[Rfam]
The record is an 87-nucleotide RNA sequence from Callithrix jacchus, which matches "mir-515 microRNA precursor family" in Rfam.
Rfam links the family to the GO terms RISC complex and miRNA-mediated post-transcriptional gene silencing.
Clan: mir-290 clan.
On this family, see Bentwich et al., Nat Genet 2005: "Identification of hundreds of conserved and nonconserved human microRNAs".

RNA sequence: UCUCAGGCCGUGACCGUCUACAGGGAAGCGCUUUCUGUUGUCAGAAAGAAAAGAAAGUGCAUCCUUGUAGUGGGUCACUGUUUGAGA
Dot-bracket structure: (((((.((.(((((...(.(((((((.((((((((..((...........)))))))))).))))))).)...))))).)).)))))